A member of the RNA family "Group II catalytic intron D1-D4-3" from Thermacetogenium phaeum, 170 nucleotides long. The pairing is the family consensus, mapped onto this sequence. NCBI's taxonomy places the organism under Bacteria, Bacillati, Thermoanaerobacterales, Thermacetogenium, Thermacetogenium phaeum. It scores 146 bits against the family's covariance model.
[Rfam]
RNA sequence: UCCAUCGCGAGGUGGAAUCCGAAGGAAGCCGGCGGCAAAACCACGGCCUGAUGAACAAGAACCCCAUAAGAGGCUACGCCGUUCGGAUGAGCUGGCGUUACACAGCGAAAUCCCAGGCUGCCAAAGGACGGCGGGGUAUAUGGGGCGGGCGCGGGGUGAAGGUUAACGCU
Numbered sequence: 001u002c003c004a005u006c007g008c009g010a011g012g013u014g015g016a017a018u019c020c021g022a023a024g025g026a027a028g029c030c031g032g033c034g035g036c037a038a039a040a041c042c043a044c045g046g047c048c049u050g051a052u053g054a055a056c057a058a059g060a061a062c063c064c065c066a067u068a069a070g071a072g073g074c075u076a077c078g079c080c081g082u083u084c085g086g087a088u089g090a091g092c093u094g095g096c097g098u099u100a101c102a103c104a105g106c107g108a109a110a111u112c113c114c115a116g117g118c119u120g121c122c123a124a125a126g127g128a129c130g131g132c133g134g135g136g137u138a139u140a141u142g143g144g145g146c147g148g149g150c151g152c153g154g155g156g157u158g159a160a161g162g163u164u165a166a167c168g169c170u
Base pairs, nucleotide, nucleotide: 001016002015003014004013005012006011028170030168031167035163036162040157041156042155044153045152046150047149048148049147050146062145063144064143065142066141067140073137074136075135077133078132079131080130081129082128083127085113086112087111088110091106092105093104094103